[Rfam]
RNA sequence: GUACGCGCCUGGUGACCUGGGUGCGUCACCAUUCUCCUCUUGUCGUUGUUGCUCCGGGGCGCCCUCGCCCCGGUUUUUUUUG
Numbered sequence: 001g002u003a004c005g006c007g008c009c010u011g012g013u014g015a016c017c018u019g020g021g022u023g024c025g026u027c028a029c030c031a032u033u034c035u036c037c038u039c040u041u042g043u044c045g046u047u048g049u050u051g052c053u054c055c056g057g058g059g060c061g062c063c064c065u066c067g068c069c070c071c072g073g074u075u076u077u078u079u080u081u082g
Stems, first nucleotide, its partner, number of pairs: 001029002003026005009021002012018001054073007